The record is an 85-nucleotide RNA from Alkalithermobacter paradoxus, which matches "Group II catalytic intron D1-D4-1" in Rfam.
RNA sequence: CAACCCAUGCAGUAAUGUAUGACUGAACUAUCAGAAGUCACCAGAGGUCAUAGUACCACGUAAUACGCGUUAGUGUGGGAAUGAC
Numbered sequence: 001c002a003a004c005c006c007a008u009g010c011a012g013u014a015a016u017g018u019a020u021g022a023c024u025g026a027a028c029u030a031u032c033a034g035a036a037g038u039c040a041c042c043a044g045a046g047g048u049c050a051u052a053g054u055a056c057c058a059c060g061u062a063a064u065a066c067g068c069g070u071u072a073g074u075g076u077g078g079g080a081a082u083g084a085c
Stems, first nucleotide, its partner, number of pairs: 001025002006021006038045002047085003056078006
On this family, see Bonen and Vogel, Trends Genet 2001: "The ins and outs of group II introns".